RNA sequence: CCACUGCAGAGCCUGGGAAGGGAGCUGUCCGGCUCCCCAGGCUCUGCAGUGGGAGG
Numbered sequence: 001c002c003a004c005u006g007c008a009g010a011g012c013c014u015g016g017g018a019a020g021g022g023a024g025c026u027g028u029c030c031g032g033c034u035c036c037c038c039a040g041g042c043u044c045u046g047c048a049g050u051g052g053g054a055g056g
Stems, first nucleotide, its partner, number of pairs: 001052017019034002
Rfam assigns this 56-nucleotide RNA sequence from Homo sapiens to the family "mir-3155 microRNA precursor family". It is one of the family's seed sequences. The organism belongs to Homo, within Eukaryota. The family has 2 seed sequences and 14 matches in Rfam 15.1.